RNA sequence: GGAGAAGUGGCCGAGUGGUCGAAGGCGCACGACUGGAAAUCGUGUAUACGGUAACACCGUAUCGAGGGUUCGAAUCCCUCCUUCUCCG
Numbered sequence: 001g002g003a004g005a006a007g008u009g010g011c012c013g014a015g016u017g018g019u020c021g022a023a024g025g026c027g028c029a030c031g032a033c034u035g036g037a038a039a040u041c042g043u044g045u046a047u048a049c050g051g052u053a054a055c056a057c058c059g060u061a062u063c064g065a066g067g068g069u070u071c072g073a074a075u076c077c078c079u080c081c082u083u084c085u086c087c088g
Base pairs, nucleotide, nucleotide: 001087002086003085004084005083006082007081010026011025012024028044029043030042031041032040064080065079066078067077068076
The record is an 88-nucleotide RNA from Plasticicumulans lactativorans, which matches "tRNA" in Rfam.
About the family: Transfer RNA (tRNA) molecules are approximately 80 nucleotides in length.
The match comes from Rfam's covariance-model search (64 bits).
NCBI's taxonomy places the organism under Bacteria, Pseudomonadati, Pseudomonadota, Gammaproteobacteria, Plasticicumulans.